[Rfam]
RNA sequence: CUACUGUGCCAGCUGGUGAAUGGCUCGGCUCGAGGGCCGACGAAGGACGUUUGCCAAGCUGCGAAAAGCUCAUGGGACCGUCAUGGGAGGGAAAGAACAUUGAGAUUUUCCGGAUCGGAAUCCGUUUUACAAUUCUUUUGGCGCAUACGGGAAACUCCCUGAAUUGAAACAUUCUCAGUAAGGGAAGGGAAAAGAAAACGCAAAACCGCGAUGUCGUCAUUAACCGCGACGCCCGCUGCGGUGAAACGCAGACACAGCCCCAAACCGAAGCGGUCUUCGGACCAAUGGUGGUUGUUCGGGUUGCAACCAAAAACGCGACCCACUCUCAGAAGUCUUUCCUGGAAGCGGAGCGUGAAACAGGGUGACAACCCCGUACGGAGAGUGCCAGUUACCGUUGGCGGUCAACUUACCAGAGUUAGCAGGGGUUCGGAUUAUCCUCUGAACAAACUCAGGCAUCCCUGGAGAAGGCUUAAACACUCCUCGAGAGCCGAUAGCGAACAAGUAGCGUGAGCGACGGCUGAAAACACCCCGAGAAGGGCGGUGCAAUAGGGGCCUGAAAUCAGCUGCCGAUUCGA
Numbered sequence: 001c002u003a004c005u006g007u008g009c010c011a012g013c014u015g016g017u018g019a020a021u022g023g024c025u026c027g028g029c030u031c032g033a034g035g036g037c038c039g040a041c042g043a044a045g046g047a048c049g050u051u052u053g054c055c056a057a058g059c060u061g062c063g064a065a066a067a068g069c070u071c072a073u074g075g076g077a078c079c080g081u082c083a084u085g086g087g088a089g090g091g092a093a094a095g096a097a098c099a100u101u102g103a104g105a106u107u108u109u110c111c112g113g114a115u116c117g118g119a120a121u122c123c124g125u126u127u128u129a130c131a132a133u134u135c136u137u138u139u140g141g142c143g144c145a146u147a148c149g150g151g152a153a154a155c156u157c158c159c160u161g162a163a164u165u166g167a168a169a170c171a172u173u174c175u176c177a178g179u180a181a182g183g184g185a186a187g188g189g190a191a192a193a194g195a196a197a198a199c200g201c202a203a204a205a206c207c208g209c210g211a212u213g214u215c216g217u218c219a220u221u222a223a224c225c226g227c228g229a230c231g232c233c234c235g236c237u238g239c240g241g242u243g244a245a246a247c248g249c250a251g252a253c254a255c256a257g258c259c260c261c262a263a264a265c266c267g268a269a270g271c272g273g274u275c276u277u278c279g280g281a282c283c284a285a286u287g288g289u290g291g292u293u294g295u296u297c298g299g300g301u302u303g304c305a306a307c308c309a310a311a312a313a314c315g316c317g318a319c320c321c322a323c324u325c326u327c328a329g330a331a332g333u334c335u336u337u338c339c340u341g342g343a344a345g346c347g348g349a350g351c352g353u354g355a356a357a358c359a360g361g362g363u364g365a366c367a368a369c370c371c372c373g374u375a376c377g378g379a380g381a382g383u384g385c386c387a388g389u390u391a392c393c394g395u396u397g398g399c400g401g402u403c404a405a406c407u408u409a410c411c412a413g414a415g416u417u418a419g420c421a422g423g424g425g426u427u428c429g430g431a432u433u434a435u436c437c438u439c440u441g442a443a444c445a446a447a448c449u450c451a452g453g454c455a456u457c458c459c460u461g462g463a464g465a466a467g468g469c470u471u472a473a474a475c476a477c478u479c480c481u482c483g484a485g486a487g488c489c490g491a492u493a494g495c496g497a498a499c500a501a502g503u504a505g506c507g508u509g510a511g512c513g514a515c516g517g518c519u520g521a522a523a524a525c526a527c528c529c530c531g532a533g534a535a536g537g538g539c540g541g542u543g544c545a546a547u548a549g550g551g552g553c554c555u556g557a558a559a560u561c562a563g564c565u566g567c568c569g570a571u572u573c574g575a
Base pairs, nucleotide, nucleotide: 007569008568010566011565012564013563014562015561016560022554023518024517027489028488029485030484031483032482033481034480035478036477045111046110047109048063049062050061069104070103071102072101073099074098078091079090116124117123118122140144155187156185157184158183159182160181166174167173199208213253214252215251216249217248223242224241225240226239227238228237256470257469258468259467264289265288266287267278268277269276270275300406301405302404303403315395326378327377332351334350337349338348339347354358360372361371362370420441421440422439423438424437425436448464449463450462452460505512506511
A member of the RNA family "Archaeal large subunit ribosomal RNA" from Halorubrum sp. Ib24, 575 nucleotides of a longer RNA.